Record summary
The family of this 127-nucleotide sequence is "Small nucleolar RNA SNORA15". Rfam describes the family as follows. ACA15 is a member of the H/ACA class of snoRNA that guide the sites of modification of uridines to pseudouridines. It is annotated as an H/ACA-box small nucleolar RNA. Gene Ontology terms of the family: RNA processing and nucleolus. The family has 22 seed sequences and 974 matches in Rfam 15.1. It is one of the family's seed sequences.

RNA sequence: GCAUGGCUGAAUACUGUGUUCUUUAGUCAGUAAUUUACAUAGCCAGACACCAUGCAAGAGUAAAGUCUUCCUUUAAGAUGGCUGCUAUGCUGUAUUUUAUGGUAUAUCAUUAAAAGUGAGUACAAGU
Numbered sequence: 001g002c003a004u005g006g007c008u009g010a011a012u013a014c015u016g017u018g019u020u021c022u023u024u025a026g027u028c029a030g031u032a033a034u035u036u037a038c039a040u041a042g043c044c045a046g047a048c049a050c051c052a053u054g055c056a057a058g059a060g061u062a063a064a065g066u067c068u069u070c071c072u073u074u075a076a077g078a079u080g081g082c083u084g085c086u087a088u089g090c091u092g093u094a095u096u097u098u099a100u101g102g103u104a105u106a107u108c109a110u111u112a113a114a115a116g117u118g119a120g121u122a123c124a125a126g127u
Stems, first nucleotide, its partner, number of pairs: 001055006014042006068120003071116004075111002083109002086106007